[Rfam]
RNA: mir-556 microRNA precursor family
Organism: Macaca mulatta
RNA sequence: GAUAGUAAUGAGAAAGAUGAACUCAUUGUAAUAUGAGCUUCAUUUAUGCAUUUCAUAUUACAAUUAGCUGAUCUUUUUUUUU
Number, nucleotide and partner (000 for none) at each position: 001g000002a000003u000004a000005g000006u000007a082008a081009u000010g079011a078012g077013a076014a075015a074016g073017a072018u071019g000020a069021a000022c067023u066024c000025a064026u063027u000028g061029u060030a059031a058032u057033a056034u055035g054036a053037g052038c000039u000040u000041c000042a000043u000044u000045u000046a000047u000048g000049c000050a000051u000052u037053u036054c035055a034056u033057a032058u031059u030060a029061c028062a000063a026064u025065u000066a023067g022068c000069u020070g000071a018072u017073c016074u015075u014076u013077u012078u011079u010080u000081u008082u007